[Rfam]
RNA: Small nucleolar RNA SNORD113/SNORD114 family
RNA sequence: UGGACCAGUGAUGAUGACUGGUGGAGUAUGAGUCAUGGAUGAUGAAUACUGUGUGUCUGGAACUCUGAGGUCCAA
Numbered sequence: 001u002g003g004a005c006c007a008g009u010g011a012u013g014a015u016g017a018c019u020g021g022u023g024g025a026g027u028a029u030g031a032g033u034c035a036u037g038g039a040u041g042a043u044g045a046a047u048a049c050u051g052u053g054u055g056u057c058u059g060g061a062a063c064u065c066u067g068a069g070g071u072c073c074a075a
Stems, first nucleotide, its partner, number of pairs: 002073005